[Rfam]
RNA sequence: GGCACUUUGGCGGAGUGGUUAACGCGCUGGCCUGCUAGUCCCUUUGGGAAAGUUAGCCAGUUCCUUCGGGAGCGUGUGUUCGAAUCACACAGGUGUCG
Numbered sequence: 001g002g003c004a005c006u007u008u009g010g011c012g013g014a015g016u017g018g019u020u021a022a023c024g025c026g027c028u029g030g031c032c033u034g035c036u037a038g039u040c041c042c043u044u045u046g047g048g049a050a051a052g053u054u055a056g057c058c059a060g061u062u063c064c065u066u067c068g069g070g071a072g073c074g075u076g077u078g079u080u081c082g083a084a085u086c087a088c089a090c091a092g093g094u095g096u097c098g
Stems, first nucleotide, its partner, number of pairs: 001097007010025003027060005074090005
RNA: tRNA
Organism: Pyrenophora tritici-repentis